About this RNA
The record is a 108-nucleotide RNA sequence from Lactococcus lactis, which matches "lactis-plasmid RNA" in Rfam. The family's RNA type in Rfam is small RNA. Taxonomically the source falls in Lactococcus (Bacteria, Bacillota, Bacilli, Streptococcaceae).
RNA sequence: CCAAAAAUAAAAAGAAUCGUCUGAAACGAGGAACAAACUAAAAUGUAAAUUUUAGUUGUUACCGAGUGGAAGAUGAAUACUUUUUAACCUAUGUGUAUACACACAUAG
Numbered sequence: 001c002c003a004a005a006a007a008u009a010a011a012a013a014g015a016a017u018c019g020u021c022u023g024a025a026a027c028g029a030g031g032a033a034c035a036a037a038c039u040a041a042a043a044u045g046u047a048a049a050u051u052u053u054a055g056u057u058g059u060u061a062c063c064g065a066g067u068g069g070a071a072g073a074u075g076a077a078u079a080c081u082u083u084u085u086a087a088c089c090u091a092u093g094u095g096u097a098u099a100c101a102c103a104c105a106u107a108g
Base pairs, nucleotide, nucleotide: 008086009085010084011083012082013081014080015078017076018075019074020073021072022071026067027066030063031062032060033059035057036056038055039054040053041052042051043050044049089108090107091106092105093104094103095102096101
Dot-bracket structure: .......((((((((.((((((...((..((((.((.(((((((....))))))))).)).))..))...)))))).).)))))))..((((((((....))))))))